[Rfam]
Nucleotides: 463
Base pairs, nucleotide, nucleotide: 003041004040005039006038007037008036015030016029017028018027019026020025051107052106053105054104055103056102057101058100062096063095064094065093069090070089071088074081075080113454114453115452116451117450118449119448120447121446122445123444132432133431135429136428137427138426143306144305316345317344318343320342321341322340323339325337326336327335328334346419347418348417349416350415359412360411361410362409363408373392374391376389377388378387379386380385
Number, partner (000 for none) and nucleotide at each position: 001000u002000u003041u004040u005039c006038c007037g008036u009000a010000u011000u012000g013000c014000a015030u016029c017028u018027u019026g020025u021000u022000a023000g024000a025020a026019c027018a028017a029016g030015a031000c032000a033000u034000u035000a036008g037007c038006g039005g040004a041003a042000u043000g044000a045000c046000c047000a048000a049000u050000u051107u052106u053105g054104u055103c056102u057101g058100a059000c060000c061000g062096a063095u064094c065093g066000c067000c068000c069090a070089c071088g072000c073000a074081g075080c076000a077000a078000u079000g080075g081074c082000g083000u084000a085000a086000g087000a088071c089070g090069u091000u092000g093065u094064g095063a096062u097000c098000u099000u100058u101057c102056a103055g104054a105053c106052a107051g108000u109000u110000a111000g112000c113454g114453g115452g116451c117450u118449g119448c120447g121446g122445g123444u124000u125000g126000c127000a128000g129000u130000c131000c132432u133431u134000a135429c136428c137427g138426g139000u140000a141000c142000a143306g144305g145000c146000u147000c148000u149000a150000u151000g152000g153000a154000u155000u156000u157000c158000a159000a160000g161000u162000c163000g164000c165000a166000g167000g168000a169000a170000g171000g172000c173000g174000u175000c176000a177000a178000c179000u180000c181000c182000g183000g184000g185000a186000c187000u188000c189000c190000c191000g192000g193000g194000a195000g196000c197000u198000c199000a200000u201000c202000u203000g204000g205000a206000u207000c208000g209000c210000c211000a212000g213000a214000u215000c216000g217000a218000g219000g220000u221000g222000a223000g224000c225000a226000g227000g228000u229000u230000a231000a232000g233000c234000c235000a236000c237000c238000a239000u240000g241000c242000c243000u244000g245000c246000a247000a248000c249000g250000c251000g252000a253000a254000a255000g256000a257000c258000g259000a260000c261000g262000a263000g264000u265000a266000u267000a268000a269000a270000u271000g272000g273000a274000a275000u276000a277000u278000u279000c280000u281000c282000u283000g284000g285000u286000g287000a288000u289000a290000c291000a292000u293000c294000c295000c296000a297000g298000g299000c300000u301000g302000u303000u304000c305144c306143c307000c308000u309000g310000a311000a312000u313000a314000a315000u316345u317344g318343c319000g320342c321341u322340g323339u324000g325337u326336u327335u328334c329000c330000g331000u332000u333000u334328g335327a336326a337325a338000c339323a340322c341321a342320g343318g344317c345316g346419a347418c348417c349416g350415a351000c352000a353000c354000u355000c356000u357000g358000c359412g360411c361410c362409u363408c364000u365000u366000a367000a368000g369000c370000g371000c372000g373392c374391g375000a376389c377388a378387a379386c380385c381000g382000u383000g384000a385380g386379g387378u388377u389376g390000g391374c392373g393000a394000c395000g396000u397000g398000a399000a400000c401000c402000a403000g404000a405000c406000a407000c408363g409362a410361g411360g412359c413000c414000a415350u416349c417348g418347g419346u420000u421000u422000u423000c424000c425000c426138c427137c428136g429135g430000a431133a432132a433000g434000g435000c436000a437000u438000u439000a440000c441000u442000c443000u444123g445122c446121c447120c448119g449118c450117a451116g452115c453114u454113u455000a456000g457000u458000c459000g460000u461000c462000a463000a
Annotation:
The record is a 463-nucleotide RNA from Klebsiella pneumoniae, which matches "RNase E 5' UTR element" in Rfam. The organism belongs to Klebsiella pneumoniae, within Bacteria. By type it is a cis-regulatory element. About the family: This family represents a conserved element found in the 5' UTR of RNase E mRNA. RNase E is a key regulatory enzyme in the pathway of mRNA degradation in E. coli that is able to auto-regulate the degradation of its own mRNA in response to changes in RNase E activity.